The record is a 61-nucleotide sequence from Pleurocapsales cyanobacterium LEGE 06147, which matches "Plastid-psbN 5UTR RNA" in Rfam.
A search with the family's covariance model found it, with a score of 57 bits.
Lineage of the source: Bacteria > Bacillati > Cyanobacteriota > Cyanophyceae > Pleurocapsales.
By type it is a cis-regulatory element.
[Rfam]
RNA sequence: AAAAACUCCCAUUAUCGGAGUGGUACCCCAACCAGGAGCAACUUUACCAUAUUCAGAGUUU
Numbered sequence: 001a002a003a004a005a006c007u008c009c010c011a012u013u014a015u016c017g018g019a020g021u022g023g024u025a026c027c028c029c030a031a032c033c034a035g036g037a038g039c040a041a042c043u044u045u046a047c048c049a050u051a052u053u054c055a056g057a058g059u060u061u
Base pairs, nucleotide, nucleotide: 017045018044019043020042021041023039024038026036027035